Background: A member of the RNA family "MIR8565 microRNA precursor family" from Amborella trichopoda, 154 nucleotides long. The base pairs follow the family's consensus structure, which was predicted with RNAalifold.
RNA sequence: CUCACACACAUGUGUGUAGGACCCUAAAAGAUCACCGUUAAAUUUGGCACAGAUCUCUAAAAAAGUUAUCAUAUGGGUGUGAGACUUGAUUUUUCUAAAGAUCUGUGUCAAAUUUAAUGGUGAUCCUUUGGGGUCCUACACACAUGGGUGUGAG
Dot-bracket structure: .((((((.(((((.((((((((((((((.(((.(((((((((((((((((((((((.((.(((((((((((((....)))))....)))))))).)).))))))))))))))))))))))).))).)))))))))))))).))))).)))))).